[Rfam]
RNA sequence: AUGCGCUGCAGCAGGUUGCUGGCUCUGCUUAUGAGAGGGUUUCAGCUCUCGUUGGUGCUGGAGCUCGCGUGGGCCACGUCACCCUCCCUUCACCCUU
Dot-bracket structure: ..(.(..(..(..((.(((((((((......((...((((.(((((.((....)).))))).)))).)).)))))).).))))..).)..).)....
The record is a 97-nucleotide RNA sequence from Equus asinus, which matches "mir-9128 microRNA precursor family" in Rfam. The source organism's lineage runs through Eukaryota, Bilateria, Chordata, Tetrapoda and Equus. Pairs were carried over by alignment from the consensus structure, which was predicted with RNAalifold. It scores 54 bits against the family's covariance model.